[Rfam]
RNA sequence: UGCUCUAUGAUAAUCAGCCUAAUUAUUGGCAAUAUACGCUAUGCCGAUUAUAUGCAUGAGUAGAUAAUUCAUUUUGGAAUAUGAGAGCA
Numbered sequence: 001u002g003c004u005c006u007a008u009g010a011u012a013a014u015c016a017g018c019c020u021a022a023u024u025a026u027u028g029g030c031a032a033u034a035u036a037c038g039c040u041a042u043g044c045c046g047a048u049u050a051u052a053u054g055c056a057u058g059a060g061u062a063g064a065u066a067a068u069u070c071a072u073u074u075u076g077g078a079a080u081a082u083g084a085g086a087g088c089a
Base pairs, nucleotide, nucleotide: 001089002088003087004086005085
Dot-bracket structure: (((((...............................................................................)))))

Small nucleolar RNA U54: an 89-nucleotide RNA from Striga asiatica.
The base pairs follow the family's consensus structure, which was predicted with PFOLD.
On this family, see Chen et al., Nucleic Acids Res 2003: "The high diversity of snoRNAs in plants: identification and comparative study of 120 snoRNA genes from Oryza sativa".
U54 is a C/D box small nucleolar RNA, which acts as a methylation guide for 18S ribosomal RNA in plants.
Taxonomically the source falls in Striga (Eukaryota, Viridiplantae, Orobanchaceae, Buchnereae).